RNA sequence: GGCUGCCUGAGGGGAAGGUGGCCCUAGUACGAGAGGAACGGGCCGCCGGCGCCUCUGGUGUACCGGUCGUCCGACAGGGCGACGCCGGGCAGCUACGCGCCGGGUGAUAAAGGCUGAAAGCAUCUAAGCCUGAAGCACCCCCCGAAAAUAGGCAGCCAUAAGGGGGCGCCUAAAAGAGGCGUUUGAUGGGGCGGAGGUGUAAGCCUCGAGGCGAAAGCCGAGAGGCUUAGCCUGCCGCUCCCAACACCCCGAAAA
Numbered sequence: 001g002g003c004u005g006c007c008u009g010a011g012g013g014g015a016a017g018g019u020g021g022c023c024c025u026a027g028u029a030c031g032a033g034a035g036g037a038a039c040g041g042g043c044c045g046c047c048g049g050c051g052c053c054u055c056u057g058g059u060g061u062a063c064c065g066g067u068c069g070u071c072c073g074a075c076a077g078g079g080c081g082a083c084g085c086c087g088g089g090c091a092g093c094u095a096c097g098c099g100c101c102g103g104g105u106g107a108u109a110a111a112g113g114c115u116g117a118a119a120g121c122a123u124c125u126a127a128g129c130c131u132g133a134a135g136c137a138c139c140c141c142c143c144g145a146a147a148a149u150a151g152g153c154a155g156c157c158a159u160a161a162g163g164g165g166g167c168g169c170c171u172a173a174a175a176g177a178g179g180c181g182u183u184u185g186a187u188g189g190g191g192c193g194g195a196g197g198u199g200u201a202a203g204c205c206u207c208g209a210g211g212c213g214a215a216a217g218c219c220g221a222g223a224g225g226c227u228u229a230g231c232c233u234g235c236c237g238c239u240c241c242c243a244a245c246a247c248c249c250c251g252a253a254a255a
Stems, first nucleotide, its partner, number of pairs: 001157008011143004017047008048101005056095003063088005068081005104138003111131005162250004166182005187243003190239005195233003203226005210219001

This 255-nucleotide part of an RNA from Methanothermus fervidus belongs to the Rfam family "Archaeal large subunit ribosomal RNA". Rfam's curators put it in the seed alignment. The organism belongs to Methanothermus fervidus, within Archaea.